[Rfam]
RNA sequence: CGAGGUCGCCGCGACUGGCGUUCACAGGUGGAGCACCACCGGGGACCGGCGACGUGGUUCUCUCCGCCGCGCGCCUGGGCAAGCCGU
Numbered sequence: 001c002g003a004g005g006u007c008g009c010c011g012c013g014a015c016u017g018g019c020g021u022u023c024a025c026a027g028g029u030g031g032a033g034c035a036c037c038a039c040c041g042g043g044g045a046c047c048g049g050c051g052a053c054g055u056g057g058u059u060c061u062c063u064c065c066g067c068c069g070c071g072c073g074c075c076u077g078g079g080c081a082a083g084c085c086g087u
Stems, first nucleotide, its partner, number of pairs: 003055001005053007015043002017075005028039004066080003
Rfam assigns this 87-nucleotide RNA from Conexibacter arvalis to the family "ZMP/ZTP riboswitch aptamer (pfl RNA motif)". NCBI's taxonomy places the organism under Bacteria, Actinomycetota, Solirubrobacterales, Conexibacteraceae, Conexibacter. Pairs were carried over by alignment from the consensus structure, which is taken from published work.